The record is a 71-nucleotide RNA from Hevea brasiliensis, which matches "Small nucleolar RNA snoR60" in Rfam. Clan: SNORD101 clan. Lineage of the source: Eukaryota > Viridiplantae > Tracheophyta > Euphyllophyta > Hevea. Rfam classes the family as a C/D-box small nucleolar RNA.
[Rfam]
RNA sequence: GGGCAUAUGAUGAAGUACUCGGAUUCCCCUUCUAGACGAUAUGGGUGAUGUAAUCCCGAGUUUCUGAUGCU
Numbered sequence: 001g002g003g004c005a006u007a008u009g010a011u012g013a014a015g016u017a018c019u020c021g022g023a024u025u026c027c028c029c030u031u032c033u034a035g036a037c038g039a040u041a042u043g044g045g046u047g048a049u050g051u052a053a054u055c056c057c058g059a060g061u062u063u064c065u066g067a068u069g070c071u
Base pairs, nucleotide, nucleotide: 002071003070004069005068